[Rfam]
The family of this 97-nucleotide sequence from Hibiscus syriacus is "MIR396 microRNA precursor family". For this family Rfam cites "Expression of Arabidopsis MIRNA genes" (Xie et al., Plant Physiol, 2005). NCBI's taxonomy places the organism under Eukaryota, Tracheophyta, Mesangiospermae, eudicotyledons, Hibiscus. The family's consensus secondary structure was predicted with WAR.
RNA sequence: GGUCAUGCUUUUCCACAGCUUUCUUGAACUUCCUUUGUAUUGUAAUUGUAUAUAGCAAACAAUGAAAGCUCAAGAAAGCUGUGGGAGAACAUGAUGG
Numbered sequence: 001g002g003u004c005a006u007g008c009u010u011u012u013c014c015a016c017a018g019c020u021u022u023c024u025u026g027a028a029c030u031u032c033c034u035u036u037g038u039a040u041u042g043u044a045a046u047u048g049u050a051u052a053u054a055g056c057a058a059a060c061a062a063u064g065a066a067a068g069c070u071c072a073a074g075a076a077a078g079c080u081g082u083g084g085g086a087g088a089a090c091a092u093g094a095u096g097g
Base pairs, nucleotide, nucleotide: 003094004093005092006091007090013084014083015082017080018079019078020077021076022075024073025072026071027070029068030067031066033064